[Rfam]
Nucleotides: 073
Stems, first nucleotide, its partner, number of pairs: 008018004040058008
Number, partner (000 for none) and nucleotide at each position: 001000g002000g003000a004000g005000u006000g007000u008018g009017c010016c011015u012000u013000u014000c015011a016010g017009g018008c019000a020000u021000c022000c023000u024000c025000u026000c027000c028000u029000a030000a031000a032000a033000a034000c035000u036000u037000u038000u039000c040058g041057g042056c043055c044054g045053g046052u047051c048000a049000u050000u051047g052046a053045c054044c055043g056042g057041c058040c059000u060000u061000u062000u063000u064000u065000u066000u067000u068000g069000g070000c071000c072000c073000g
Rfam assigns this 73-nucleotide RNA sequence from Sphingomonas gellani to the family "Makes More Granules Regulator RNA (mmgR)". The literature on the family includes a 2005 paper in Genome Biol by Corbino et al., "Evidence for a second class of S-adenosylmethionine riboswitches and other regulatory RNA motifs in alpha-proteobacteria".